UnaL2 LINE 3' element: a 54-nucleotide sequence from Bagarius yarrelli.
The eel long interspersed element (LINE) UnaL2 and its partner short interspersed element (SINE) share a conserved 3' tail containing a stem-loop that is critical for their retrotransposition. Presumably, the first step of retrotransposition is the recognition of their 3' tails by UnaL2-encoded reverse transcriptase. The solution structure of a 17-nucleotide RNA derived from the 3' tail of UnaL2 was determined by NMR.
A search with the family's covariance model found it, with a score of 57 bits.
The family's consensus secondary structure is taken from published work.
Lineage of the source: Eukaryota > Deuterostomia > Euteleostomi > Teleostei > Bagarius.
RNA sequence: AAAUGAAAUAUUUGUAAGUCGCUCUGGAUAAGGGCGUCUGCCAAAUGCUAUUUU
Dot-bracket structure: ............((((...((((((.....))))))..))).)...........